[Rfam]
RNA: Bacterial RNase P class A
RNA sequence: AAGACGAAUCGGGCAGUCGCGGUGCGCCACGCGCAUCGAGGAAGGUCCGGACUCCACAGAGCGCGGUAGCGGCUAACGGCCGUCCGGGUCCGCAGCGGGUUUCCGCGGCGGGCUCGAGGAAUAGGGCCACAGAGACGAGUCUGCGGAGCGGGCGCGGAUGUCCGCGCACAGGCACGGCGACUCCGUGUCGCGCGAUCCGGUUUUCCGGGGCGCGGCGCCGCAGGGUGAAACGCGGCAACCUCUACCGGGAGCAACAUCAAAUAGGCAUGCGCGCGGUCUUCGGACCGGAAAGGGCGGCUCGUCCGAGCAUGCGGGUAGAUGGCUAGAUCCGGUCAGUAAUGGCCGGGCCAGAGGAAUGAUUGCCCGCCGGGCUUGCCCGGCGUACAGAAUCCGGCCUAUAGAUUCGUCUUGCCU
Numbered sequence: 001a002a003g004a005c006g007a008a009u010c011g012g013g014c015a016g017u018c019g020c021g022g023u024g025c026g027c028c029a030c031g032c033g034c035a036u037c038g039a040g041g042a043a044g045g046u047c048c049g050g051a052c053u054c055c056a057c058a059g060a061g062c063g064c065g066g067u068a069g070c071g072g073c074u075a076a077c078g079g080c081c082g083u084c085c086g087g088g089u090c091c092g093c094a095g096c097g098g099g100u101u102u103c104c105g106c107g108g109c110g111g112g113c114u115c116g117a118g119g120a121a122u123a124g125g126g127c128c129a130c131a132g133a134g135a136c137g138a139g140u141c142u143g144c145g146g147a148g149c150g151g152g153c154g155c156g157g158a159u160g161u162c163c164g165c166g167c168a169c170a171g172g173c174a175c176g177g178c179g180a181c182u183c184c185g186u187g188u189c190g191c192g193c194g195a196u197c198c199g200g201u202u203u204u205c206c207g208g209g210g211c212g213c214g215g216c217g218c219c220g221c222a223g224g225g226u227g228a229a230a231c232g233c234g235g236c237a238a239c240c241u242c243u244a245c246c247g248g249g250a251g252c253a254a255c256a257u258c259a260a261a262u263a264g265g266c267a268u269g270c271g272c273g274c275g276g277u278c279u280u281c282g283g284a285c286c287g288g289a290a291a292g293g294g295c296g297g298c299u300c301g302u303c304c305g306a307g308c309a310u311g312c313g314g315g316u317a318g319a320u321g322g323c324u325a326g327a328u329c330c331g332g333u334c335a336g337u338a339a340u341g342g343c344c345g346g347g348c349c350a351g352a353g354g355a356a357u358g359a360u361u362g363c364c365c366g367c368c369g370g371g372c373u374u375g376c377c378c379g380g381c382g383u384a385c386a387g388a389a390u391c392c393g394g395c396c397u398a399u400a401g402a403u404u405c406g407u408c409u410u411g412c413c414u
Stems, first nucleotide, its partner, number of pairs: 001410010011399001012364007020038008043397003047394005052251004059300004064247005069083005084118001085116009119242002124240002126236003141224002143221004148216002151213001255321004265312006292304004328347008